[Rfam]
RNA sequence: CGGGGAUCAAGCCGCCUCCCCGUCAGAUGAAGUUCAUCCAAGCGCUGC
Numbered sequence: 001c002g003g004g005g006a007u008c009a010a011g012c013c014g015c016c017u018c019c020c021c022g023u024c025a026g027a028u029g030a031a032g033u034u035c036a037u038c039c040a041a042g043c044g045c046u047g048c
Stems, first nucleotide, its partner, number of pairs: 001022006011048002014045002026038005
RNA: chrB-b RNA